Rfam assigns this 90-nucleotide RNA from Nitrosomonas sp. Nm166 to the family "Burkholderia RNA 7 (anti-hemB)". Rfam's curators write: This RNA motif was identified by computational search in b-proteobacteria Burkholderia. Co-purified with Hfq, expression confirmed by Northern blot. A search with the family's covariance model found it, with a score of 55 bits. Lineage of the source: Bacteria > Pseudomonadota > Betaproteobacteria > Nitrosomonadaceae > Nitrosomonas. The family has 26 seed sequences and 479 matches in Rfam 15.1.
RNA sequence: UCCCCUGUCUUCCCUCCCUGAGACAGGGCCUUAAGUGAUAUUAAGGCGGUUCCCCCGGUUUUACUCCCCUUUUAACCGGGGGUCUUUUAA
Numbered sequence: 001u002c003c004c005c006u007g008u009c010u011u012c013c014c015u016c017c018c019u020g021a022g023a024c025a026g027g028g029c030c031u032u033a034a035g036u037g038a039u040a041u042u043a044a045g046g047c048g049g050u051u052c053c054c055c056c057g058g059u060u061u062u063a064c065u066c067c068c069c070u071u072u073u074a075a076c077c078g079g080g081g082g083u084c085u086u087u088u089a090a
Stems, first nucleotide, its partner, number of pairs: 004027006028047007053081008